[Rfam]
RNA sequence: UUACUACCAAACCCUAUCUCCACCUCCACGUGGUGGCCGCUGGGAGCUCUUUCUUAACGAAAAGCUGCAGUUGAGGAAGG
Numbered sequence: 001u002u003a004c005u006a007c008c009a010a011a012c013c014c015u016a017u018c019u020c021c022a023c024c025u026c027c028a029c030g031u032g033g034u035g036g037c038c039g040c041u042g043g044g045a046g047c048u049c050u051u052u053c054u055u056a057a058c059g060a061a062a063a064g065c066u067g068c069a070g071u072u073g074a075g076g077a078a079g080g
Base pairs, nucleotide, nucleotide: 013080014079015078017076018075019074020073022034023033024032045066046065047064048063050061051060053059
Shown here is an 80-nucleotide RNA sequence from Hermetia illucens, a member of the family "drz-agam-1 ribozyme". A search with the family's covariance model found it, with a score of 38 bits. The family's consensus secondary structure is taken from published work. On this family, see Webb et al., Science 2009: "Widespread occurrence of self-cleaving ribozymes".